Shown here is a 69-nucleotide RNA, a member of the family "potC RNA". It is annotated as a cis-regulatory element.

[Rfam]
RNA sequence: UUAGAUGUGCCCACGUCACUCUCCCUAGGAUCUUUACCCUUUCCUAGAAACUGUCGUGGGCAUUAAAAA
Numbered sequence: 001u002u003a004g005a006u007g008u009g010c011c012c013a014c015g016u017c018a019c020u021c022u023c024c025c026u027a028g029g030a031u032c033u034u035u036a037c038c039c040u041u042u043c044c045u046a047g048a049a050a051c052u053g054u055c056g057u058g059g060g061c062a063u064u065a066a067a068a069a
Stems, first nucleotide, its partner, number of pairs: 007063009017053002026046005
The sequence is in the family's curated seed alignment.